[Rfam]
RNA sequence: CUCUUAUCCAGAGAAGGUGGAGGGACAGGCCCAAAGAAGCCCGGCAACCAUCACGGAAGCGUGAUAAGGUGCUAACCUGAUGCAAGACUUUGUCUUGAUCGAUAAGAG
Numbered sequence: 001c002u003c004u005u006a007u008c009c010a011g012a013g014a015a016g017g018u019g020g021a022g023g024g025a026c027a028g029g030c031c032c033a034a035a036g037a038a039g040c041c042c043g044g045c046a047a048c049c050a051u052c053a054c055g056g057a058a059g060c061g062u063g064a065u066a067a068g069g070u071g072c073u074a075a076c077c078u079g080a081u082g083c084a085a086g087a088c089u090u091u092g093u094c095u096u097g098a099u100c101g102a103u104a105a106g107a108g
Stems, first nucleotide, its partner, number of pairs: 001108008013042001016041003022032003026082002029078001043073004048069002050065004083097006

A member of the RNA family "SAM riboswitch aptamer (S box leader)" from Melghiribacillus thermohalophilus, 108 nucleotides long. For this family Rfam cites "The S box regulon: a new global transcription termination control system for methionine and cysteine biosynthesis genes in gram-positive bacteria" (Grundy and Henkin, Mol Microbiol, 1998). Pairs were carried over by alignment from the consensus structure, which is taken from published work. The organism belongs to Melghiribacillus, within Bacteria.